[Rfam]
RNA: TPP riboswitch aptamer (THI element)
RNA sequence: UAGAAACUUUAGGGGUGCUGUAAUGGCUGAGAAUUACCCUUAGAACCUGAAACCGAUAAUGCGGGCGAUAGGGAAAAGUGUUACAUAGCUC
Numbered sequence: 001u002a003g004a005a006a007c008u009u010u011a012g013g014g015g016u017g018c019u020g021u022a023a024u025g026g027c028u029g030a031g032a033a034u035u036a037c038c039c040u041u042a043g044a045a046c047c048u049g050a051a052a053c054c055g056a057u058a059a060u061g062c063g064g065g066c067g068a069u070a071g072g073g074a075a076a077a078g079u080g081u082u083a084c085a086u087a088g089c090u091c
Stems, first nucleotide, its partner, number of pairs: 006079005011040004017027004046072004053064003